[Rfam]
RNA: mir-252 microRNA precursor family
Organism: Trichogramma brassicae
RNA sequence: UCCUGUUCCUAAGUACUAGUGCCGCAGGAGUGAUUAUAAGUUUGAUUACGAAAUGUUCAGCUUCUCCUGCUGCUCGAGUGCUUAUCAAUGGGC
Numbered sequence: 001u002c003c004u005g006u007u008c009c010u011a012a013g014u015a016c017u018a019g020u021g022c023c024g025c026a027g028g029a030g031u032g033a034u035u036a037u038a039a040g041u042u043u044g045a046u047u048a049c050g051a052a053a054u055g056u057u058c059a060g061c062u063u064c065u066c067c068u069g070c071u072g073c074u075c076g077a078g079u080g081c082u083u084a085u086c087a088a089u090g091g092g093c
Base pairs, nucleotide, nucleotide: 002092003091004090005089006088007087010084011083012082013081014080015079016078017077019075024070025069026068027067028066029065030064